Annotation:
Small nucleolar RNA R16: an 80-nucleotide RNA from Ipomoea nil. A reference for the family is Galardi et al. (2002), "Purified box C/D snoRNPs are able to reproduce site-specific 2'-O-methylation of target RNA in vitro", Mol Cell Biol. It is annotated as a C/D-box small nucleolar RNA. The family has 18 seed sequences and 884 matches in Rfam 15.1. Taxonomically the source falls in Ipomoea (Eukaryota, Viridiplantae, Streptophytina, Spermatophyta).
[Rfam]
RNA sequence: GAAGGCAAAUGACGAGUAAUCUUAUCCUACACACUGAAAUUUGAUGUAGAUCAAAACUCCGCUUAUUAUCUGAUGCCUUG
Dot-bracket structure: ..(((((..................................................................)))))..